[Rfam]
Small nucleolar RNA psi18S-1377: a 132-nucleotide RNA sequence from Rhynchophorus ferrugineus. The match comes from Rfam's covariance-model search (66 bits). Rfam links the family to the GO terms RNA processing and nucleolus. The family's RNA type in Rfam is H/ACA-box small nucleolar RNA. Rfam 15.1 lists 113 matches to the family in 34 species. The source organism's lineage runs through Eukaryota, Mandibulata, Neuropteroidea, Cucujiformia and Rhynchophorus.

RNA sequence: UUGUCCUUGUGUUACCUGAUAUAUAAAUUUCCAUUUAUAAUUGGGCGUCAAACAGGACACACAUUACUGCAUCUUUUCCACAAGCUUAUUCAUCAUUAAUUGAAUUUAGCUUACUAAAAAUUUGCGACAAUA
Numbered sequence: 001u002u003g004u005c006c007u008u009g010u011g012u013u014a015c016c017u018g019a020u021a022u023a024u025a026a027a028u029u030u031c032c033a034u035u036u037a038u039a040a041u042u043g044g045g046c047g048u049c050a051a052a053c054a055g056g057a058c059a060c061a062c063a064u065u066a067c068u069g070c071a072u073c074u075u076u077u078c079c080a081c082a083a084g085c086u087u088a089u090u091c092a093u094c095a096u097u098a099a100u101u102g103a104a105u106u107u108a109g110c111u112u113a114c115u116a117a118a119a120a121u122u123u124g125c126g127a128c129a130a131u132a
Base pairs, nucleotide, nucleotide: 002059003058004057005056006055007054010050011049016044017043018042019041020040082112083111084110085109086108089104090103091102092101
From the family's description: psi18S-1377 is a member of the H/ACA class of snoRNA. This family is responsible for guiding the modification of uridines 1377 and 1279 to pseudouridine in Drosophila 18S rRNA.